The family of this 82-nucleotide sequence from Thiomonas bhubaneswarensis is "SucA RNA motif". The match comes from Rfam's covariance-model search (59 bits). A reference for the family is Weinberg et al. (2007), "Identification of 22 candidate structured RNAs in bacteria using the CMfinder comparative genomics pipeline", Nucleic Acids Res. By type it is a cis-regulatory element. The base pairs follow the family's consensus structure, which is taken from published work.
[Rfam]
RNA sequence: CCGCAAUCCGCCAAUCGGGCAGCCCGAGCCGCGGAAGGAUGUUUUCCCACUGAGCGCCGGGGUACCCGGCAGACUGUGAGCG
Numbered sequence: 001c002c003g004c005a006a007u008c009c010g011c012c013a014a015u016c017g018g019g020c021a022g023c024c025c026g027a028g029c030c031g032c033g034g035a036a037g038g039a040u041g042u043u044u045u046c047c048c049a050c051u052g053a054g055c056g057c058c059g060g061g062g063u064a065c066c067c068g069g070c071a072g073a074c075u076g077u078g079a080g081c082g
Base pairs, nucleotide, nucleotide: 002082003081004080007035008034009033010032011031016026017025018024019023037047038046039045048078049077050076056070057069058068059067060066061065
Dot-bracket structure: .(((..(((((....((((...))))....))))).(((.....)))(((.....((((((...)))))).....))).)))